[Rfam]
RNA sequence: GGCCUGUGAUUUGAGACCAAUUGUCCGUACCAUCUGAUAUUCUUGAUGUUUCACAAUUGCCAAAUUGUGUAUGAGGCCC
Numbered sequence: 001g002g003c004c005u006g007u008g009a010u011u012u013g014a015g016a017c018c019a020a021u022u023g024u025c026c027g028u029a030c031c032a033u034c035u036g037a038u039a040u041u042c043u044u045g046a047u048g049u050u051u052c053a054c055a056a057u058u059g060c061c062a063a064a065u066u067g068u069g070u071a072u073g074a075g076g077c078c079c
Stems, first nucleotide, its partner, number of pairs: 001078004
Dot-bracket structure: ((((......................................................................)))).
Rfam assigns this 79-nucleotide RNA from Zizania palustris to the family "small nucleolar RNA snoR117". The organism belongs to Zizania, within Eukaryota. Rfam 15.1 lists 419 matches to the family in 211 species. The family's RNA type in Rfam is C/D-box small nucleolar RNA. On this family, see Chen and Wu, Nucleic Acids Res 2009: "Mining small RNA sequencing data: a new approach to identify small nucleolar RNAs in Arabidopsis".